[Rfam]
RNA sequence: CCGUUAAGCAAUGACGUGACAAAUUAAGUGCCACAUCAUCAUGCCUUAUCAUCGACACGCCAUUGUCACGCCAUUGAAGGGAUGACAUGUCAAUGAGGUGUCCGUGACUAGGUGUGAUGAUGUGACACUCCAUUUGUCACGUCAUUACUUAAUAGAA
Numbered sequence: 001c002c003g004u005u006a007a008g009c010a011a012u013g014a015c016g017u018g019a020c021a022a023a024u025u026a027a028g029u030g031c032c033a034c035a036u037c038a039u040c041a042u043g044c045c046u047u048a049u050c051a052u053c054g055a056c057a058c059g060c061c062a063u064u065g066u067c068a069c070g071c072c073a074u075u076g077a078a079g080g081g082a083u084g085a086c087a088u089g090u091c092a093a094u095g096a097g098g099u100g101u102c103c104g105u106g107a108c109u110a111g112g113u114g115u116g117a118u119g120a121u122g123u124g125a126c127a128c129u130c131c132a133u134u135u136g137u138c139a140c141g142u143c144a145u146u147a148c149u150u151a152a153u154a155g156a157a
Stems, first nucleotide, its partner, number of pairs: 001155001003153006010146015027129004032124015049107004054102005070086001072084003